[Rfam]
RNA sequence: AUUGCUUUCUCCUCUCCCUCAAAGGCUUCCAACGUUGGGUUUCUGUGCCAGCACGUUAGAAGCCUUUGUGGGAGAGGAGGAAACAA
Numbered sequence: 001a002u003u004g005c006u007u008u009c010u011c012c013u014c015u016c017c018c019u020c021a022a023a024g025g026c027u028u029c030c031a032a033c034g035u036u037g038g039g040u041u042u043c044u045g046u047g048c049c050a051g052c053a054c055g056u057u058a059g060a061a062g063c064c065u066u067u068g069u070g071g072g073a074g075a076g077g078a079g080g081a082a083a084c085a086a
Base pairs, nucleotide, nucleotide: 009079010078011077012076013075014074015073016072017071018070020068021067022066023065024064025063026062027061028060029059
Dot-bracket structure: ........((((((((((.((((((((((.............................)))))))))).)))))))))).......